RNA sequence: CAGGCUGUGAUGAUUGGCGCAGGGGUACGGACCUCAGCUGAAUCAUGGGAGCUGAAUGUAUGUGUCUCACCUUUUUCUUGCAUGUGGCAGGUUGUUGGUGUGCACAUACAUGAGACUGUUGCCUGAAUCUGAGCCUG
Number, nucleotide and partner (000 for none) at each position: 001c137002a136003g135004g134005c133006u000007g000008u000009g000010a000011u000012g000013a000014u000015u000016g000017g000018c000019g000020c000021a000022g000023g000024g000025g000026u000027a000028c000029g000030g000031a000032c000033c000034u000035c000036a000037g000038c000039u000040g000041a000042a000043u000044c000045a000046u000047g000048g000049g000050a000051g000052c000053u000054g000055a000056a000057u000058g000059u000060a000061u000062g000063u000064g000065u000066c000067u000068c000069a000070c000071c000072u000073u000074u000075u000076u000077c000078u000079u000080g000081c000082a000083u000084g000085u000086g000087g000088c000089a000090g000091g000092u000093u000094g000095u000096u000097g000098g000099u000100g000101u000102g000103c000104a000105c000106a000107u000108a000109c000110a000111u000112g000113a000114g000115a000116c000117u000118g000119u000120u000121g000122c000123c000124u000125g000126a000127a000128u000129c000130u000131g000132a000133g005134c004135c003136u002137g001
RNA: Small nucleolar RNA SNORD94
Organism: Jaculus jaculus